The family of this 90-nucleotide RNA from Propionigenium maris is "Selenocysteine transfer RNA". The base pairs follow the family's consensus structure, which is taken from published work.
RNA sequence: GGAAGUGGAUGAGCAACUGGUGUUCUCCCCGGUCUUCAAAACCGUGUGGGCGGCGUGAGUCGUCGGUAGGUUCGAUUCCUACACAUUUCC
Numbered sequence: 001g002g003a004a005g006u007g008g009a010u011g012a013g014c015a016a017c018u019g020g021u022g023u024u025c026u027c028c029c030c031g032g033u034c035u036u037c038a039a040a041a042c043c044g045u046g047u048g049g050g051c052g053g054c055g056u057g058a059g060u061c062g063u064c065g066g067u068a069g070g071u072u073c074g075a076u077u078c079c080u081a082c083a084c085a086u087u088u089c090c
Stems, first nucleotide, its partner, number of pairs: 001090007008082001011027003015024003028046001030044004049064005067081004
Dot-bracket structure: ((((((((..(((.(((....))))))(.((((.......)))).)..(((((......)))))..((((.......))))).)))))))

NCBI's taxonomy places the organism under Bacteria, Fusobacteriati, Fusobacteriia, Fusobacteriales, Propionigenium maris.